[Rfam]
RNA sequence: AGGACAGUAUCGAAUAUUUUCGAACUGUACCUCCCGUAAUGGAAGCUUAGUAAUGAUUGAUCUGCCUUGAUCCGUAAAUGGACAGGGACGGAGAA
Numbered sequence: 001a002g003g004a005c006a007g008u009a010u011c012g013a014a015u016a017u018u019u020u021c022g023a024a025c026u027g028u029a030c031c032u033c034c035c036g037u038a039a040u041g042g043a044a045g046c047u048u049a050g051u052a053a054u055g056a057u058u059g060a061u062c063u064g065c066c067u068u069g070a071u072c073c074g075u076a077a078a079u080g081g082a083c084a085g086g087g088a089c090g091g092a093g094a095a
Stems, first nucleotide, its partner, number of pairs: 001032003004028005010023005062091003065087005071082003
The record is a 95-nucleotide RNA sequence from Sinobaca qinghaiensis, which matches "pan motif" in Rfam. By type it is a cis-regulatory element.